Shown here is a 544-nucleotide part of an RNA from Pontibacter cellulosilyticus, a member of the family "Bacterial large subunit ribosomal RNA". The match comes from Rfam's covariance-model search (2762 bits). NCBI's taxonomy places the organism under Bacteria, Pseudomonadati, Bacteroidota, Cytophagia, Pontibacter.
[Rfam]
RNA sequence: AGAGAAGGGCGCAUGGGGGAUGCCUAGGCUCUCAGAGGCGAUGAAGGACGCGACAAGCUGCGAUAAGCCGCGGGGAUCGGCACAUACGAGUUGAUCCGCGGGUUUCCGAAUGGGGCAACCCAGUGUGUUGAAGACGCACUACCCUACGGGGGGCGAACCCGGGGAACUGAAACAUCUAAGUACCCGGAGGAAGAGAAAAUAACAAUGAUUCCGCAAGUAGUGGCGAGCGAACGCGGAAGAGCCCAAACCGGUCUUGUUACGGCAAGGCCGGGGUUGUAGGACCACGCCGUGGGACCAAGUAUUGAAGCACAACGUUCUGGGAAGGACGGCCGCAGAGGGUGAGAGCCCCGUGUGCGCAAGCUGCUUGGCCCUAGUGGUAUCCUGAGUAGGGCGGGACCGGAGAAAUCCCGCCUGAAUCCAGCGGCACCAUCCGCUAAGGCUAAAUACUCCUGAGAGACCGAUAGUGAACCAGUACCGUGAGGGAAAGGUGAAAAGUACCCCGAAUAGGGGGGUGAAAUAGACCCUGAAACCAUGCGCCUACAAG
Numbered sequence: 001a002g003a004g005a006a007g008g009g010c011g012c013a014u015g016g017g018g019g020a021u022g023c024c025u026a027g028g029c030u031c032u033c034a035g036a037g038g039c040g041a042u043g044a045a046g047g048a049c050g051c052g053a054c055a056a057g058c059u060g061c062g063a064u065a066a067g068c069c070g071c072g073g074g075g076a077u078c079g080g081c082a083c084a085u086a087c088g089a090g091u092u093g094a095u096c097c098g099c100g101g102g103u104u105u106c107c108g109a110a111u112g113g114g115g116c117a118a119c120c121c122a123g124u125g126u127g128u129u130g131a132a133g134a135c136g137c138a139c140u141a142c143c144c145u146a147c148g149g150g151g152g153g154c155g156a157a158c159c160c161g162g163g164g165a166a167c168u169g170a171a172a173c174a175u176c177u178a179a180g181u182a183c184c185c186g187g188a189g190g191a192a193g194a195g196a197a198a199a200u201a202a203c204a205a206u207g208a209u210u211c212c213g214c215a216a217g218u219a220g221u222g223g224c225g226a227g228c229g230a231a232c233g234c235g236g237a238a239g240a241g242c243c244c245a246a247a248c249c250g251g252u253c254u255u256g257u258u259a260c261g262g263c264a265a266g267g268c269c270g271g272g273g274u275u276g277u278a279g280g281a282c283c284a285c286g287c288c289g290u291g292g293g294a295c296c297a298a299g300u301a302u303u304g305a306a307g308c309a310c311a312a313c314g315u316u317c318u319g320g321g322a323a324g325g326a327c328g329g330c331c332g333c334a335g336a337g338g339g340u341g342a343g344a345g346c347c348c349c350g351u352g353u354g355c356g357c358a359a360g361c362u363g364c365u366u367g368g369c370c371c372u373a374g375u376g377g378u379a380u381c382c383u384g385a386g387u388a389g390g391g392c393g394g395g396a397c398c399g400g401a402g403a404a405a406u407c408c409c410g411c412c413u414g415a416a417u418c419c420a421g422c423g424g425c426a427c428c429a430u431c432c433g434c435u436a437a438g439g440c441u442a443a444a445u446a447c448u449c450c451u452g453a454g455a456g457a458c459c460g461a462u463a464g465u466g467a468a469c470c471a472g473u474a475c476c477g478u479g480a481g482g483g484a485a486a487g488g489u490g491a492a493a494a495g496u497a498c499c500c501c502g503a504a505u506a507g508g509g510g511g512g513u514g515a516a517a518u519a520g521a522c523c524c525u526g527a528a529a530c531c532a533u534g535c536g537c538c539u540a541c542a543a544g
Stems, first nucleotide, its partner, number of pairs: 007539010022524001023488002027459002029456007036448002038154002046107003049062003068101007077089003112121003122140007142151003158189001159187005169176002199206002209444001210237005220228002240441004248271007278383003282377004293370001295368007303360001307355003313328005331335001337349003389413008420435005475482002498510004